A member of the RNA family "c-di-GMP-I riboswitch aptamer" from Paenibacillus roseus, 85 nucleotides long. Lineage of the source: Bacteria > Bacillota > Bacilli > Paenibacillaceae > Paenibacillus. The match comes from Rfam's covariance-model search (77 bits). GEMM was predicted in a large-scale screen for bacterial structured RNA regulatory elements. Pairs were carried over by alignment from the consensus structure, which is taken from published work.

RNA sequence: AACUAAUAGGGGCAAACUUAGUGAAAGCUAAGGGCGCAAAGCCACGGGCCUAAAGCAGGGAAGCUAUGGCAGCCGGGUUGCAAGA
Numbered sequence: 001a002a003c004u005a006a007u008a009g010g011g012g013c014a015a016a017c018u019u020a021g022u023g024a025a026a027g028c029u030a031a032g033g034g035c036g037c038a039a040a041g042c043c044a045c046g047g048g049c050c051u052a053a054a055g056c057a058g059g060g061a062a063g064c065u066a067u068g069g070c071a072g073c074c075g076g077g078u079u080g081c082a083a084g085a
Base pairs, nucleotide, nucleotide: 012037013036017032018031019030020029021028022027040079041078042077043076045075046074047073048070049069050068055064056063